Eukaryotic small subunit ribosomal RNA: a 600-nucleotide part of an RNA from Jaera nordmanni.
Clan: SSU clan.
Lineage of the source: Eukaryota > Protostomia > Malacostraca > Asellota > Jaera.
The sequence is in the family's curated seed alignment.
The base pairs follow the family's consensus structure, which is taken from published work.
RNA sequence: CAGGAGUGGAGCCUGCGGCUUAAUUUGACUCAACACGGGAAAACUUACCAGGUCAGGACAUUUAAAGGACUGACAGAUUGAUAGCUCUUUCUCAAUAAAUUGGGUGGUGGUGCAUGGCCGUUCUUAGUUGGUGGAGUGGUCUGUCUGGUUGAUUCCGAUAACGAACGAGAUUCUAUCCUACUAAUUAGUAGGCGGAUCGUUUAAAACUUUAUUAUACUCUGUAGACUGAUAUUCUGAAAGUCAGUGUGACGUGUGUGCGUUAAUUUAUUGCUUAGCUUCGGCUAUGGUGAUUUUUUGAUGUAUGUCGUUCAUUGAUGGAUCGUUAUAAACAUGUUGAGAGAGAUAUAUUUAAAGAAAAUACGUCCGUCUUAUAGUCUUCUUAGAGGUAUAAAUGGCGAACCCUAGCCAAACGAGAAAGAGCAAUAACAGGUCUGUGAUGCGCUUAGAUGUCCUGGGCAGCACGCGCGCUACAAUGUAGUGAACAACGUGCAAUUAUUUUCCUAAAAUAAGCCAUUUCCGAAAGGAUAUGGGAACCAUAGUAACACCCUACAUGGUUGGGAUUGGUUAUUGUAAUUUUUAGCCAUGAACCAGGAAUUCCUA
Numbered sequence: 001c002a003g004g005a006g007u008g009g010a011g012c013c014u015g016c017g018g019c020u021u022a023a024u025u026u027g028a029c030u031c032a033a034c035a036c037g038g039g040a041a042a043a044c045u046u047a048c049c050a051g052g053u054c055a056g057g058a059c060a061u062u063u064a065a066a067g068g069a070c071u072g073a074c075a076g077a078u079u080g081a082u083a084g085c086u087c088u089u090u091c092u093c094a095a096u097a098a099a100u101u102g103g104g105u106g107g108u109g110g111u112g113c114a115u116g117g118c119c120g121u122u123c124u125u126a127g128u129u130g131g132u133g134g135a136g137u138g139g140u141c142u143g144u145c146u147g148g149u150u151g152a153u154u155c156c157g158a159u160a161a162c163g164a165a166c167g168a169g170a171u172u173c174u175a176u177c178c179u180a181c182u183a184a185u186u187a188g189u190a191g192g193c194g195g196a197u198c199g200u201u202u203a204a205a206a207c208u209u210u211a212u213u214a215u216a217c218u219c220u221g222u223a224g225a226c227u228g229a230u231a232u233u234c235u236g237a238a239a240g241u242c243a244g245u246g247u248g249a250c251g252u253g254u255g256u257g258c259g260u261u262a263a264u265u266u267a268u269u270g271c272u273u274a275g276c277u278u279c280g281g282c283u284a285u286g287g288u289g290a291u292u293u294u295u296u297g298a299u300g301u302a303u304g305u306c307g308u309u310c311a312u313u314g315a316u317g318g319a320u321c322g323u324u325a326u327a328a329a330c331a332u333g334u335u336g337a338g339a340g341a342g343a344u345a346u347a348u349u350u351a352a353a354g355a356a357a358a359u360a361c362g363u364c365c366g367u368c369u370u371a372u373a374g375u376c377u378u379c380u381u382a383g384a385g386g387u388a389u390a391a392a393u394g395g396c397g398a399a400c401c402c403u404a405g406c407c408a409a410a411c412g413a414g415a416a417a418g419a420g421c422a423a424u425a426a427c428a429g430g431u432c433u434g435u436g437a438u439g440c441g442c443u444u445a446g447a448u449g450u451c452c453u454g455g456g457c458a459g460c461a462c463g464c465g466c467g468c469u470a471c472a473a474u475g476u477a478g479u480g481a482a483c484a485a486c487g488u489g490c491a492a493u494u495a496u497u498u499u500c501c502u503a504a505a506a507u508a509a510g511c512c513a514u515u516u517c518c519g520a521a522a523g524g525a526u527a528u529g530g531g532a533a534c535c536a537u538a539g540u541a542a543c544a545c546c547c548u549a550c551a552u553g554g555u556u557g558g559g560a561u562u563g564g565u566u567a568u569u570g571u572a573a574u575u576u577u578u579a580g581c582c583a584u585g586a587a588c589c590a591g592g593a594a595u596u597c598c599u600a
Stems, first nucleotide, its partner, number of pairs: 003598005008471001010469003014465004018460002024039004048455005054449001059102002062099002072091002075088003106443002110440003115437001116435001117431003120427003127166003131162002133142003146157003172419003177386003181383004187377002389412001393408004475550004480545001487537003511530002516525003557588001562583006